[Rfam]
RNA sequence: UGGGGACUAGCAGGCUCCCCCGUCAGACAGUUUCCGUCCAAGCUCUGC
Numbered sequence: 001u002g003g004g005g006a007c008u009a010g011c012a013g014g015c016u017c018c019c020c021c022g023u024c025a026g027a028c029a030g031u032u033u034c035c036g037u038c039c040a041a042g043c044u045c046u047g048c
Base pairs, nucleotide, nucleotide: 002020003019004018005017006016010048011047012046013045014044026038027037028036030034